The record is a 35-nucleotide sequence from Thermoflexibacter ruber, which matches "DUF805b RNA" in Rfam.
It is annotated as a cis-regulatory element.
Pairs were carried over by alignment from the consensus structure, which is taken from published work.

[Rfam]
RNA sequence: AAUGGGGAAGUCGAAAACCAUAGUUAGAGUAGGCA
Numbered sequence: 001a002a003u004g005g006g007g008a009a010g011u012c013g014a015a016a017a018c019c020a021u022a023g024u025u026a027g028a029g030u031a032g033g034c035a
Stems, first nucleotide, its partner, number of pairs: 002021004010034003